S10-Clostridia ribosomal protein leader: a 104-nucleotide RNA sequence from Ruminiclostridium hungatei.
RNA sequence: GGCAUACGAUGAAGUGGGAGAUUGCUAUCCUGUACCUGAAUUCAGGGACGUAAGAGAUAGGUAACUUUCACGGAGAAUGUCCGAUUCAAGAAACCGGGCGACAA
Number, nucleotide and partner (000 for none) at each position: 001g000002g000003c000004a000005u000006a000007c000008g000009a000010u000011g000012a000013a000014g071015u070016g069017g000018g068019a067020g066021a000022u000023u000024g000025c060026u059027a058028u057029c056030c000031u000032g000033u000034a000035c000036c000037u000038g000039a000040a000041u000042u000043c000044a000045g000046g000047g000048a000049c000050g000051u000052a000053a000054g000055a000056g029057a028058u027059a026060g025061g000062u000063a000064a000065c000066u020067u019068u018069c016070a015071c014072g000073g000074a000075g000076a000077a000078u103079g102080u101081c100082c000083g000084a000085u098086u097087c096088a000089a000090g000091a000092a000093a000094c000095c000096g087097g086098g085099c000100g081101a080102c079103a078104a000
The organism belongs to Ruminiclostridium, within Bacteria. Pairs were carried over by alignment from the consensus structure, which is taken from published work.